[Rfam]
RNA sequence: ACGCUGUGAUGAUACCCAUCUCGGUUUCGCUUAUCGCUGAAUUCCAGUGAAGACGCGUUUCUCUUGGCUGUCUGAGCGU
Numbered sequence: 001a002c003g004c005u006g007u008g009a010u011g012a013u014a015c016c017c018a019u020c021u022c023g024g025u026u027u028c029g030c031u032u033a034u035c036g037c038u039g040a041a042u043u044c045c046a047g048u049g050a051a052g053a054c055g056c057g058u059u060u061c062u063c064u065u066g067g068c069u070g071u072c073u074g075a076g077c078g079u
Base pairs, nucleotide, nucleotide: 001079002078003077004076
The family of this 79-nucleotide RNA from Crotophaga sulcirostris is "Small nucleolar RNA SNORD53/SNORD92".
For this family Rfam cites "Site-specific ribose methylation of preribosomal RNA: a novel function for small nucleolar RNAs" (Kiss-Laszlo et al., Cell, 1996).
Its family is annotated with nucleolus and RNA processing in the Gene Ontology.
NCBI's taxonomy places the organism under Eukaryota, Eumetazoa, Deuterostomia, Saurischia, Crotophaga.
It is annotated as a C/D-box small nucleolar RNA.
Clan: SNORD52 clan.
The pairing is the family consensus, mapped onto this sequence.